This 100-nucleotide RNA sequence from Caenorhabditis briggsae belongs to the Rfam family "mir-36 microRNA precursor family". A reference for the family is Ohler et al. (2004), "Patterns of flanking sequence conservation and a characteristic upstream motif for microRNA gene identification", RNA. Its family is annotated with RISC complex and miRNA-mediated post-transcriptional gene silencing in the Gene Ontology. Clan: mir-36 clan. It is one of the family's seed sequences.
RNA sequence: CCCUUAGUCCAGUUCUGGACAUUCGCGGGUUUUUUCCUUCGGUGAUAUUCGAAGAAUCGCUAUCACCGGGUGAAAACUUGCAAGUGUCUUGCUUCGACUG
Numbered sequence: 001c002c003c004u005u006a007g008u009c010c011a012g013u014u015c016u017g018g019a020c021a022u023u024c025g026c027g028g029g030u031u032u033u034u035u036c037c038u039u040c041g042g043u044g045a046u047a048u049u050c051g052a053a054g055a056a057u058c059g060c061u062a063u064c065a066c067c068g069g070g071u072g073a074a075a076a077c078u079u080g081c082a083a084g085u086g087u088c089u090u091g092c093u094u095c096g097a098c099u100g
Stems, first nucleotide, its partner, number of pairs: 017089006025081010036070002040068001042066006